[Rfam]
RNA sequence: CCUUCCAGCGAGGGGUGCCAUGCCGACCAUGGACGAGUUCCGUGGCCUGACUGGCUGAGAUUAUACCCUUAGAACCUGAUCCGGCUCGUACCGGCGUAGGGACUGCUGAAAUUGACGUCU
Numbered sequence: 001c002c003u004u005c006c007a008g009c010g011a012g013g014g015g016u017g018c019c020a021u022g023c024c025g026a027c028c029a030u031g032g033a034c035g036a037g038u039u040c041c042g043u044g045g046c047c048u049g050a051c052u053g054g055c056u057g058a059g060a061u062u063a064u065a066c067c068c069u070u071a072g073a074a075c076c077u078g079a080u081c082c083g084g085c086u087c088g089u090a091c092c093g094g095c096g097u098a099g100g101g102a103c104u105g106c107u108g109a110a111a112u113u114g115a116c117g118u119c120u
Stems, first nucleotide, its partner, number of pairs: 006108005011069004016063001017055004075100004081094004

Annotation: The family of this 120-nucleotide RNA is "TPP riboswitch aptamer (THI element)". The base pairs follow the family's consensus structure, which is taken from published work.